[Rfam]
The record is a 52-nucleotide RNA sequence from Solanum lycopersicum, which matches "MIR1886 microRNA precursor family" in Rfam. Pairs were carried over by alignment from the consensus structure, which was predicted with RNAalifold. It scores 71 bits against the family's covariance model.

RNA sequence: UGAGGUGGAAUCAGCGUUUGAACAUGUGAUUUCACGCUGAUUCCAUCUCAUG
Numbered sequence: 001u002g003a004g005g006u007g008g009a010a011u012c013a014g015c016g017u018u019u020g021a022a023c024a025u026g027u028g029a030u031u032u033c034a035c036g037c038u039g040a041u042u043c044c045a046u047c048u049c050a051u052g
Base pairs, nucleotide, nucleotide: 001050002049003048004047005046006045007044008043009042010041011040012039013038014037015036016035017034018029019028020027

Lineage of the source: Eukaryota > Euphyllophyta > Magnoliopsida > Solanum > Solanum subgen. Lycopersicon.